[Rfam]
RNA sequence: CAGUUAAAAAGUCCGUAGUCGGCACUGCGACGAAAGCGCGCUGCUCGAUGGCGCAGGCGUUGCAGGGGCUUGCGGAGCGGGCGGGGGGCACGGUAUAGGCAGGCGAGAGAUGAAAUGGCCAAGACCCUGCCUGGACCGACGGUGGCGAAGGCGGUGCCCUCGCACGCAUCUGUGGAUCAAGGACGAAGGCAGGAGGAUCGAAAGUGAUUAGAGACCGCUGUAGUUCCGGCAGUAAACGAUGCCGACACCGCGCGGCGGGGCUGCGCGGGGGGGAAACCUUAGUGUUCGGGCUCUGGGGAUAGUAUGCUCGCAAGUGUGAAAAUUAAACGAAAU
Numbered sequence: 001c002a003g004u005u006a007a008a009a010a011g012u013c014c015g016u017a018g019u020c021g022g023c024a025c026u027g028c029g030a031c032g033a034a035a036g037c038g039c040g041c042u043g044c045u046c047g048a049u050g051g052c053g054c055a056g057g058c059g060u061u062g063c064a065g066g067g068g069c070u071u072g073c074g075g076a077g078c079g080g081g082c083g084g085g086g087g088g089c090a091c092g093g094u095a096u097a098g099g100c101a102g103g104c105g106a107g108a109g110a111u112g113a114a115a116u117g118g119c120c121a122a123g124a125c126c127c128u129g130c131c132u133g134g135a136c137c138g139a140c141g142g143u144g145g146c147g148a149a150g151g152c153g154g155u156g157c158c159c160u161c162g163c164a165c166g167c168a169u170c171u172g173u174g175g176a177u178c179a180a181g182g183a184c185g186a187a188g189g190c191a192g193g194a195g196g197a198u199c200g201a202a203a204g205u206g207a208u209u210a211g212a213g214a215c216c217g218c219u220g221u222a223g224u225u226c227c228g229g230c231a232g233u234a235a236a237c238g239a240u241g242c243c244g245a246c247a248c249c250g251c252g253c254g255g256c257g258g259g260g261c262u263g264c265g266c267g268g269g270g271g272g273g274a275a276a277c278c279u280u281a282g283u284g285u286u287c288g289g290g291c292u293c294u295g296g297g298g299a300u301a302g303u304a305u306g307c308u309c310g311c312a313a314g315u316g317u318g319a320a321a322a323u324u325a326a327a328c329g330a331a332a333u
Stems, first nucleotide, its partner, number of pairs: 001295003011184004018177003074171003077167003081163002085160007092137002096133008107119001109116001145152002189230002192227003199223001203219004241291003245283002248268009271278002297324002306317002309314001
RNA: Microsporidia small subunit ribosomal RNA, nucleotides 435 to 767